[Rfam]
RNA: Small nucleolar RNA MBII-202
RNA sequence: UGAUGACACAUUCUCAGGAAUCUCCGCUUUUCUGUGAUGACUACCUGGAGCCCUUUAUUCUGAUGGUUGUUGGAGUCAGC
Numbered sequence: 001u002g003a004u005g006a007c008a009c010a011u012u013c014u015c016a017g018g019a020a021u022c023u024c025c026g027c028u029u030u031u032c033u034g035u036g037a038u039g040a041c042u043a044c045c046u047g048g049a050g051c052c053c054u055u056u057a058u059u060c061u062g063a064u065g066g067u068u069g070u071u072g073g074a075g076u077c078a079g080c
Stems, first nucleotide, its partner, number of pairs: 002080001004078003